[Rfam]
RNA: 6A RNA
Organism: Schistosoma mansoni
RNA sequence: UUUUCUGAUUAUACAGUGUAAUCAGGGAAAUCAAAAUAAACACUAAGAGAGA
Number, nucleotide and partner (000 for none) at each position: 001u000002u000003u000004u000005c000006u024007g023008a022009u021010u020011a019012u000013a000014c000015a044016g043017u042018g000019u011020a010021a009022u008023c007024a006025g000026g000027g000028a000029a000030a000031u000032c000033a000034a000035a000036a000037u000038a000039a000040a000041c000042a017043c016044u015045a000046a000047g000048a000049g000050a000051g000052a000